[Rfam]
RNA sequence: GCCUUAACUAUUAAAAGUUUCGUUUUGGUCCUUUAACUUACCUUUUGGUUUCGUUUUGGUCCCUUAACUCUUCCUCCUUCAACCGCUUUGGUCCUUUAUGUUAGGAUGAAUGUAUUAGAGUUAAGGGACCAAAAUGAAACCAAAAAAUAAGUUAAGGGACCAAAAUGAAACAAAAAAAUAAGUUAAGGGACCAAAACGAAACAAAAAAAAAAUAAGUUAAGAGACCAAAACGAAACUUUUAAUAGUUAAGGGA
Numbered sequence: 001g002c003c004u005u006a007a008c009u010a011u012u013a014a015a016a017g018u019u020u021c022g023u024u025u026u027g028g029u030c031c032u033u034u035a036a037c038u039u040a041c042c043u044u045u046u047g048g049u050u051u052c053g054u055u056u057u058g059g060u061c062c063c064u065u066a067a068c069u070c071u072u073c074c075u076c077c078u079u080c081a082a083c084c085g086c087u088u089u090g091g092u093c094c095u096u097u098a099u100g101u102u103a104g105g106a107u108g109a110a111u112g113u114a115u116u117a118g119a120g121u122u123a124a125g126g127g128a129c130c131a132a133a134a135u136g137a138a139a140c141c142a143a144a145a146a147a148u149a150a151g152u153u154a155a156g157g158g159a160c161c162a163a164a165a166u167g168a169a170a171c172a173a174a175a176a177a178a179u180a181a182g183u184u185a186a187g188g189g190a191c192c193a194a195a196a197c198g199a200a201a202c203a204a205a206a207a208a209a210a211a212a213u214a215a216g217u218u219a220a221g222a223g224a225c226c227a228a229a230a231c232g233a234a235a236c237u238u239u240u241a242a243u244a245g246u247u248a249a250g251g252g253a
Stems, first nucleotide, its partner, number of pairs: 002251007023230003027226003032221009043210001045208002
The family of this 253-nucleotide sequence from Medicago truncatula is "MIR2655 microRNA precursor family". Gene Ontology terms of the family: miRNA-mediated post-transcriptional gene silencing and RISC complex. Lineage of the source: Eukaryota > Viridiplantae > Pentapetalae > Fabaceae > Medicago.